RNA: t44 RNA
Organism: Pseudoalteromonas sp. NBT06-2
Nucleotides: 106
Base pairs, nucleotide, nucleotide: 023096024095025094026093027092028091029090030089035087036086037085038084039083040081041080042079048077049076050075051074
Number, partner (000 for none) and nucleotide at each position: 001000u002000a003000a004000u005000a006000u007000g008000u009000u010000a011000a012000c013000u014000a015000a016000a017000a018000u019000c020000a021000c022000a023096c024095a025094c026093a027092c028091a029090u030089c031000g032000a033000c034000a035087c036086a037085u038084g039083c040081g041080c042079u043000u044000g045000g046000g047000u048077g049076c050075a051074c052000g053000u054000u055000u056000a057000u058000u059000u060000u061000u062000a063000a064000u065000u066000a067000a068000a069000u070000a071000a072000a073000a074051g075050u076049g077048u078000u079042a080041g081040u082000g083039g084038u085037a086036u087035g088000g089030g090029a091028u092027g093026u094025g095024u096023g097000g098000a099000g100000g101000c102000c103000u104000a105000a106000c